Manganese Mn2+ riboswitch aptamer (yybP-ykoY): a 134-nucleotide RNA sequence from Shewanella denitrificans. It scores 46 bits against the family's covariance model. Gene Ontology term of the family: manganese ion binding. The literature on the family includes a 2001 paper in Curr Biol by Argaman et al., "Novel small RNA-encoding genes in the intergenic regions of Escherichia coli". The organism belongs to Shewanella denitrificans, within Bacteria. The family has 29 seed sequences and 1,126 matches in Rfam 15.1. This RNA was originally discovered in E. coli during a large scale screen and was named SraF. The family was later found to exist upstream of related families of protein genes in many bacteria, including the the yybP and ykoK genes in B. subtilis. The specific functions of these proteins are unknown, but this structured RNA element may be involved in their genetic regulation as a riboswitch.

RNA sequence: UAGGGGAGUAGCUAACCAAGGCCAGAUUUUCAAUUGCCUUGGGGUGAGUAUCAACAUACUUGGCCACAGGCCAUGGUGCUCACAGUGGUUUCUGAGUUAAUGCUUAAUUAAUAAGACUCAGCGGAAAACCACCC
Numbered sequence: 001u002a003g004g005g006g007a008g009u010a011g012c013u014a015a016c017c018a019a020g021g022c023c024a025g026a027u028u029u030u031c032a033a034u035u036g037c038c039u040u041g042g043g044g045u046g047a048g049u050a051u052c053a054a055c056a057u058a059c060u061u062g063g064c065c066a067c068a069g070g071c072c073a074u075g076g077u078g079c080u081c082a083c084a085g086u087g088g089u090u091u092c093u094g095a096g097u098u099a100a101u102g103c104u105u106a107a108u109u110a111a112u113a114a115g116a117c118u119c120a121g122c123g124g125a126a127a128a129c130c131a132c133c134c
Base pairs, nucleotide, nucleotide: 016042017041018040019039020038021037022036044083045082046081047080048079049078050077051076052075053074061073062072063071064070065069085132086131087130088129089128090127